The family of this 94-nucleotide RNA from Paenibacillus sedimenti is "c-di-GMP-I-GGC riboswitch aptamer". The source organism's lineage runs through Bacteria, Bacillota, Bacilli, Paenibacillaceae and Paenibacillus. The match comes from Rfam's covariance-model search (70 bits). The family has 40 seed sequences and 1,298 matches in Rfam 15.1. The literature on the family includes a 2010 paper in Biochemistry by Smith et al., "Structural and biochemical determinants of ligand binding by the c-di-GMP riboswitch ". The family's consensus secondary structure is taken from published work.
[Rfam]
RNA sequence: CGCGAUAAAGGCAAACCUGGCGAAAGCCAGGGACGCAAAGCUAGAGGGGCUUUCUUGUCCUGCAAGUGGACGGGUUGCCAGCCAGCUGCCGACG
Numbered sequence: 001c002g003c004g005a006u007a008a009a010g011g012c013a014a015a016c017c018u019g020g021c022g023a024a025a026g027c028c029a030g031g032g033a034c035g036c037a038a039a040g041c042u043a044g045a046g047g048g049g050c051u052u053u054c055u056u057g058u059c060c061u062g063c064a065a066g067u068g069g070a071c072g073g074g075u076u077g078c079c080a081g082c083c084a085g086c087u088g089c090c091g092a093c094g
Stems, first nucleotide, its partner, number of pairs: 001094001003091002011036002016031006034081001039087004046083002048079003